[Rfam]
RNA: ZMP/ZTP riboswitch aptamer (pfl RNA motif)
Organism: Glaciihabitans arcticus
RNA sequence: UGAACGGGUUGCAACUGGCGUUCAGGUGGGCAACCACCGGGGAGCAACUAUGUGCUUAUGCACUACACGAUUUGGCCGUUCGCCUGGGCCAACCGG
Numbered sequence: 001u002g003a004a005c006g007g008g009u010u011g012c013a014a015c016u017g018g019c020g021u022u023c024a025g026g027u028g029g030g031c032a033a034c035c036a037c038c039g040g041g042g043a044g045c046a047a048c049u050a051u052g053u054g055c056u057u058a059u060g061c062a063c064u065a066c067a068c069g070a071u072u073u074g075g076c077c078g079u080u081c082g083c084c085u086g087g088g089c090c091a092a093c094c095g096g
Stems, first nucleotide, its partner, number of pairs: 003053001007049006015041002017084004026037004073091005